This 222-nucleotide RNA sequence from Lysinibacillus alkalisoli belongs to the Rfam family "T-box leader". NCBI's taxonomy places the organism under Bacteria, Bacillota, Bacilli, Caryophanales, Lysinibacillus. A reference for the family is Grundy et al. (2000), "tRNA determinants for transcription antitermination of the Bacillus subtilis tyrS gene", RNA.

Nucleotides: 222
Stems, first nucleotide, its partner, number of pairs: 007107002015102004026090006039077002050073006110135002112132004137149003168187007192219004203215004
Number, partner (000 for none) and nucleotide at each position: 001000g002000a003000u004000c005000a006000u007107g008106c009000a010000u011000u012000g013000a014000u015102g016101a017100g018099g019000a020000g021000a022000a023000g024000u025000a026090c027089a028088u029087a030086a031085u032000a033000u034000g035000c036000c037000c038000u039077c040076u041000a042000a043000a044000a045000g046000a047000g048000a049000g050073a051072u052071u053070u054069g055068c056000c057000a058000a059000a060000g061000g062000c063000u064000g065000a066000a067000a068055g069054c070053a071052a072051a073050u074000c075000g076040a077039g078000u079000g080000a081000a082000c083000c084000u085031a086030u087029u088028a089027u090026g091000g092000a093000a094000a095000u096000g097000c098000a099018c100017c101016u102015u103000u104000g105000a106008g107007c108000a109000c110135u111134a112132a113131g114130c115129u116000g117000a118000a119000a120000c121000a122000u123000c124000a125000a126000g127000u128000a129115g130114g131113c132112u133000u134111u135110a136000g137149c138148g139147a140000c141000u142000u143000g144000u145000c146000a147139u148138c149137g150000u151000u152000a153000c154000a155000u156000g157000a158000c159000a160000u161000a162000a163000a164000u165000g166000a167000g168187u169186a170185g171184a172183g173182a174181c175000c176000a177000u178000a179000g180000c181174g182173u183172c184171u185170c186169u187168a188000a189000a190000u191000c192219a193218g194217a195216g196000u197000g198000g199000a200000a201000c202000c203215a204214c205213g206212u207000u208000u209000a210000u211000c212206a213205c214204g215203u216195c217194u218193c219192u220000g221000u222000c